[Rfam]
RNA sequence: UACAGAAUCUGGAAUGGCGUUUCCAAUGCUAUGCAAAACUACCGGUUAUACGGUUGAUGACGCCUGUUGACGA
Number, nucleotide and partner (000 for none) at each position: 001u000002a000003c000004a000005g000006a000007a000008u000009c000010u025011g024012g023013a022014a000015u000016g064017g063018c062019g061020u060021u059022u013023c012024c011025a010026a000027u000028g000029c000030u000031a000032u000033g000034c000035a000036a000037a000038a000039c000040u000041a054042c053043c052044g051045g000046u000047u000048a000049u000050a000051c044052g043053g042054u041055u000056g000057a000058u000059g021060a020061c019062g018063c017064c016065u000066g000067u000068u000069g000070a000071c000072g000073a000

Shown here is a 73-nucleotide sequence, a member of the family "Fluoride riboswitch aptamer (crcB RNA motif)". Gene Ontology terms of the family: response to fluoride and positive regulation of gene expression.